RNA sequence: UACCAGCGUCGUUUAAAGUAAAUCUCGUGCGGCUUACUUCUUAAUUUUAAGCCGCACGAGAUUUACUUAAAUUGAUGUUGAG
Dot-bracket structure: .....((((((.((.(((((((((((((((((((((...........))))))))))))))))))))).)).))))))....
Description: The record is an 82-nucleotide RNA sequence from Parnassius apollo, which matches "mir-2767 microRNA precursor family" in Rfam. It scores 74 bits against the family's covariance model. The base pairs follow the family's consensus structure, which was predicted with RNAalifold. The organism belongs to Parnassius, within Eukaryota.